[Rfam]
RNA sequence: AUGCCCUACGGAGUGCUCCGGUCCGCCGCAUCUCCGGGGUCCGUGGGGUUCGGCCGGCUGGCUGCGGUGCGAGUGGCCUCCUCGUGUCACCGCGGCCGGCCGGCCACCUU
Dot-bracket structure: ..((((((((.....((((((............))))))..))))))))..(((((((((((................................))))))))))).....
The family of this 110-nucleotide sequence from Pseudolabrys taiwanensis is "EcpR1".
NCBI's taxonomy places the organism under Bacteria, Pseudomonadati, Alphaproteobacteria, Xanthobacteraceae, Pseudolabrys.
By type it is a small RNA.
The literature on the family includes a 2012 paper in RNA Biol by Wilms et al., "Deep sequencing uncovers numerous small RNAs on all four replicons of the plant pathogen Agrobacterium tumefaciens".
Its family is annotated with negative regulation of cell cycle, regulation of translation in response to stress and mRNA binding in the Gene Ontology.
The match comes from Rfam's covariance-model search (89 bits).
From the family's description: Perviously named SmelC291, SmrC10, or Sra33. According to its overproduction phenotype it was renamed Elongated Cell Phenotype RNA1. Induced by stress,EcpR1 negatively regulates cell cycle master regulatory genes dnaA and gcrA at post-transcriptional level by base pairing between its strongly conserved GC-rich loop and the target mRNAs. It's regulation is hfq-independent but requires RNase E to regulate dnaA.